[Rfam]
RNA: Guanidine-II riboswitch aptamer (mini-ykkC)
Nucleotides: 048
Stems, first nucleotide, its partner, number of pairs: 002019007035048005
Number, partner (000 for none) and nucleotide at each position: 001000c002019u003018g004017c005016g006015g007014g008013g009000a010000c011000g012000a013008c014007c015006c016005c017004g018003c019002a020000a021000g022000u023000a024000c025000g026000u027000u028000c029000u030000u031000c032000c033000a034000g035048c036047g037046g038045g039044g040000a041000c042000g043000a044039c045038c046037c047036u048035g